This 103-nucleotide RNA sequence from Burkholderiales bacterium PBB3 belongs to the Rfam family "Glycine riboswitch aptamer". Rfam's curators write: This family represents the bacterial glycine riboswitch.
RNA sequence: UCUCAACCGUCAGGAGAGAGUUUCCUCCGAGGAAACCGCCGAAGGCGCAGGACCGCUGAUUGCAGUGGUCUGAACGCUCAGGCAAAAGGACUGACCAGCGUCU
Numbered sequence: 001u002c003u004c005a006a007c008c009g010u011c012a013g014g015a016g017a018g019a020g021u022u023u024c025c026u027c028c029g030a031g032g033a034a035a036c037c038g039c040c041g042a043a044g045g046c047g048c049a050g051g052a053c054c055g056c057u058g059a060u061u062g063c064a065g066u067g068g069u070c071u072g073a074a075c076g077c078u079c080a081g082g083c084a085a086a087a088g089g090a091c092u093g094a095c096c097a098g099c100g101u102c103u
Stems, first nucleotide, its partner, number of pairs: 009095005020036004038083003041079002045077003051070008